A member of the RNA family "mir-5316 microRNA precursor family" from Rhipicephalus microplus, 89 nucleotides long. Taxonomically the source falls in Boophilus (Eukaryota, Metazoa, Panarthropoda, Parasitiformes). Pairs were carried over by alignment from the consensus structure, which was predicted with RNAalifold. Its family is annotated with RISC complex and miRNA-mediated post-transcriptional gene silencing in the Gene Ontology.

[Rfam]
RNA sequence: GUACCACGUGCAGGCUCGCGAAAAUGUUCUAGUUGGCAUUGAUUGAAUGAGUUGUCCCCAGGGCAUUUUCGACUAGCUUUCCAUAGUUU
Numbered sequence: 001g002u003a004c005c006a007c008g009u010g011c012a013g014g015c016u017c018g019c020g021a022a023a024a025u026g027u028u029c030u031a032g033u034u035g036g037c038a039u040u041g042a043u044u045g046a047a048u049g050a051g052u053u054g055u056c057c058c059c060a061g062g063g064c065a066u067u068u069u070c071g072a073c074u075a076g077c078u079u080u081c082c083a084u085a086g087u088u089u
Stems, first nucleotide, its partner, number of pairs: 003087002006084001012079005018073001019071006026064005032058001035056004
Dot-bracket structure: ..((.(.....(((((.(((((((.(((((.(..((((..............)))).).))))).)))))).).)))))....).))..